[Rfam]
Record summary:
A member of the RNA family "Antisense RNA which regulates isiA expression" from Stanieria sp. PCC 7302, 178 nucleotides long. The sequence is in the family's curated seed alignment. For this family Rfam cites "An internal antisense RNA regulates expression of the photosynthesis gene isiA" (Duhring et al., Proc Natl Acad Sci U S A, 2006). The organism belongs to Stanieria, within Bacteria.

RNA sequence: GAUAACCAAAAAUGGUUGCAGGAUUUAAAGUAGGGUCGGUAACGACACGGACAUCUUGGAUGUUGACAUCGUAAAGUCCACCAAAAAACAUCGCUUUUCCUGCUAAAAGCAAUGCACCUAUGCCAAGAAAUAAUAGAUGAUGACCCAGGAUCAUGCCUAAUUGCUUGGGAUCGCCCCA
Numbered sequence: 001g002a003u004a005a006c007c008a009a010a011a012a013u014g015g016u017u018g019c020a021g022g023a024u025u026u027a028a029a030g031u032a033g034g035g036u037c038g039g040u041a042a043c044g045a046c047a048c049g050g051a052c053a054u055c056u057u058g059g060a061u062g063u064u065g066a067c068a069u070c071g072u073a074a075a076g077u078c079c080a081c082c083a084a085a086a087a088a089c090a091u092c093g094c095u096u097u098u099c100c101u102g103c104u105a106a107a108a109g110c111a112a113u114g115c116a117c118c119u120a121u122g123c124c125a126a127g128a129a130a131u132a133a134u135a136g137a138u139g140a141u142g143a144c145c146c147a148g149g150a151u152c153a154u155g156c157c158u159a160a161u162u163g164c165u166u167g168g169g170a171u172c173g174c175c176c177c178a
Stems, first nucleotide, its partner, number of pairs: 136175001138173004144169005